[Rfam]
RNA: Group II catalytic intron D1-D4-4
Organism: Candidatus Hakubella thermalkaliphila
RNA sequence: AAGUCCCACCGUUGCAAUUCCCAGUUUGGCAACGUAGUUAUACCCGGCAGUCGAUAGGGGUGACCCAGCGACUGAAAGCCCGGAAGUAAAAGCCUUCUAUAGGGAGGCGAGCAACCAGGAGGGCCGUAGCGAGA
Numbered sequence: 001a002a003g004u005c006c007c008a009c010c011g012u013u014g015c016a017a018u019u020c021c022c023a024g025u026u027u028g029g030c031a032a033c034g035u036a037g038u039u040a041u042a043c044c045c046g047g048c049a050g051u052c053g054a055u056a057g058g059g060g061u062g063a064c065c066c067a068g069c070g071a072c073u074g075a076a077a078g079c080c081c082g083g084a085a086g087u088a089a090a091a092g093c094c095u096u097c098u099a100u101a102g103g104g105a106g107g108c109g110a111g112c113a114a115c116c117a118g119g120a121g122g123g124c125c126g127u128a129g130c131g132a133g134a
Base pairs, nucleotide, nucleotide: 010034011033012032013031014030044083045082046081047080048074049073050072051071052070053069057065059064092108093107094106095105096104097103111127112126